Rfam assigns this 54-nucleotide sequence from Coregonus sp. 'balchen' to the family "UnaL2 LINE 3' element". The family's RNA type in Rfam is cis-regulatory element. From the family's description: The eel long interspersed element (LINE) UnaL2 and its partner short interspersed element (SINE) share a conserved 3' tail containing a stem-loop that is critical for their retrotransposition. On this family, see Baba et al., RNA 2004: "Solution structure of an RNA stem-loop derived from the 3' conserved region of eel LINE UnaL2". The base pairs follow the family's consensus structure, which is taken from published work. The source organism's lineage runs through Eukaryota, Actinopterygii, Salmoniformes, Salmonidae and Coregonus.

RNA sequence: CUAUAUACUAACUGUAAGUCGCUCUGGAUAAGACCGUCUGCUAAAUGACUAAAA
Numbered sequence: 001c002u003a004u005a006u007a008c009u010a011a012c013u014g015u016a017a018g019u020c021g022c023u024c025u026g027g028a029u030a031a032g033a034c035c036g037u038c039u040g041c042u043a044a045a046u047g048a049c050u051a052a053a054a
Stems, first nucleotide, its partner, number of pairs: 013043001014041003020036002023033003